[Rfam]
RNA sequence: GCUUCCUUGCUGUAGCAGCACGUAAAUAUUGGAGUUAAACCACUGUCCAAGCCUCCAGUAUUGAUCGUGCUGCUGAACCAAGGCUAGC
Numbered sequence: 001g002c003u004u005c006c007u008u009g010c011u012g013u014a015g016c017a018g019c020a021c022g023u024a025a026a027u028a029u030u031g032g033a034g035u036u037a038a039a040c041c042a043c044u045g046u047c048c049a050a051g052c053c054u055c056c057a058g059u060a061u062u063g064a065u066c067g068u069g070c071u072g073c074u075g076a077a078c079c080a081a082g083g084c085u086a087g088c
Stems, first nucleotide, its partner, number of pairs: 001088003005083001013075010023064001025062010
Record summary:
This 88-nucleotide sequence from Chanos chanos belongs to the Rfam family "mir-15 microRNA precursor family". Its family is annotated with miRNA-mediated post-transcriptional gene silencing and RISC complex in the Gene Ontology. This family represents the related mir-15a and mir-15b sequences. In humans miR-15a and miR-16 are clustered within 0.5 kb at 13q14. This region has been shown to be deleted in more than half of B cell chronic lymphocytic leukaemias (CLL). Both miR-15a and miR-16 are deleted or down-regulated in more than two thirds of CLL cases. The mature sequence is excised from the 5' arm of the hairpin. It scores 59 bits against the family's covariance model. For this family Rfam cites "Identification of novel genes coding for small expressed RNAs" (Lagos-Quintana et al., Science, 2001). Rfam 15.1 lists 2,045 matches to the family in 649 species.